RNA sequence: CGGAAUCUCUAAAAAGCUUCAGGGCCUUUGAUAAGACCCAGAGUACAAUUUUUGGAGACCUUUGCUCUUGCAAGGGUCA
Dot-bracket structure: .....................(((.(((....))).))).................(((((((((....))))))))).
Numbered sequence: 001c002g003g004a005a006u007c008u009c010u011a012a013a014a015a016g017c018u019u020c021a022g023g024g025c026c027u028u029u030g031a032u033a034a035g036a037c038c039c040a041g042a043g044u045a046c047a048a049u050u051u052u053u054g055g056a057g058a059c060c061u062u063u064g065c066u067c068u069u070g071c072a073a074g075g076g077u078c079a
Stems, first nucleotide, its partner, number of pairs: 022039003026035003057078009